[Rfam]
RNA sequence: AAUCUCCCAAUCUGCGCGAUUGCACUUGCGUGCCGUAGUGUAAUUGUCGUAACUGGAGAGAGAGACAAACCUGAGUUUUGUGGGUUCAUCAGAGAGGCCUCCCCGUGGCCCCCCUGAUCCUUUCAAAAUUCCACAUUU
Numbered sequence: 001a002a003u004c005u006c007c008c009a010a011u012c013u014g015c016g017c018g019a020u021u022g023c024a025c026u027u028g029c030g031u032g033c034c035g036u037a038g039u040g041u042a043a044u045u046g047u048c049g050u051a052a053c054u055g056g057a058g059a060g061a062g063a064g065a066c067a068a069a070c071c072u073g074a075g076u077u078u079u080g081u082g083g084g085u086u087c088a089u090c091a092g093a094g095a096g097g098c099c100u101c102c103c104c105g106u107g108g109c110c111c112c113c114c115u116g117a118u119c120c121u122u123u124c125a126a127a128a129u130u131c132c133a134c135a136u137u138u
Base pairs, nucleotide, nucleotide: 003065004064005063006062008060011057012056013055014054018045019044020043021042022041023040024039025038076128077127078126079125080124082121083120084119091115092114096110097109098108099107